A member of the RNA family "MIR1120/MIR1122 microRNA precursor family" from Aegilops tauschii, 87 nucleotides long. Rfam links the family to the GO terms RISC complex and miRNA-mediated post-transcriptional gene silencing. NCBI's taxonomy places the organism under Eukaryota, Viridiplantae, Streptophyta, Embryophyta, Aegilops tauschii. Rfam 15.1 lists 44,765 matches to the family in 8 species. It scores 94 bits against the family's covariance model.
RNA sequence: GUACCCCCUCCGUCUCAUAAUGUAAGACGUUUUUUGACACUAGCGUAGUGUCAAAAAAUGUCUUACAUUAUGGGACGGAGGGAGUAA
Numbered sequence: 001g002u003a004c005c006c007c008c009u010c011c012g013u014c015u016c017a018u019a020a021u022g023u024a025a026g027a028c029g030u031u032u033u034u035u036g037a038c039a040c041u042a043g044c045g046u047a048g049u050g051u052c053a054a055a056a057a058a059u060g061u062c063u064u065a066c067a068u069u070a071u072g073g074g075a076c077g078g079a080g081g082g083a084g085u086a087a
Stems, first nucleotide, its partner, number of pairs: 003085002007081005013075005019069023